[Rfam]
Overview:
The family of this 91-nucleotide sequence from Nippostrongylus brasiliensis is "Small nucleolar RNA sn2903". The family has 4 seed sequences and 32 matches in Rfam 15.1. The family's consensus secondary structure was predicted with WAR. A search with the family's covariance model found it, with a score of 64 bits. It is annotated as a C/D-box small nucleolar RNA. Lineage of the source: Eukaryota > Metazoa > Bilateria > Protostomia > Nippostrongylus. Rfam links the family to the GO terms RNA processing and nucleolus.

RNA sequence: GAGCAGAGAUGAAUGCGUAGAUGCUUCUGACACCUCUUAUGUUAGCGGCCAUUUCCGGGUCGCAAUGAUUCCAUCAACACUAUCUGAGCUC
Number, nucleotide and partner (000 for none) at each position: 001g091002a090003g089004c088005a000006g000007a000008g000009a000010u000011g000012a000013a000014u000015g000016c000017g000018u000019a000020g000021a000022u000023g000024c000025u000026u000027c000028u000029g000030a000031c000032a000033c000034c000035u000036c000037u000038u000039a000040u000041g000042u000043u000044a000045g000046c000047g000048g000049c000050c000051a000052u000053u000054u000055c000056c000057g000058g000059g000060u000061c000062g000063c000064a000065a000066u000067g000068a000069u000070u000071c000072c000073a000074u000075c000076a000077a000078c000079a000080c000081u000082a000083u000084c000085u000086g000087a000088g004089c003090u002091c001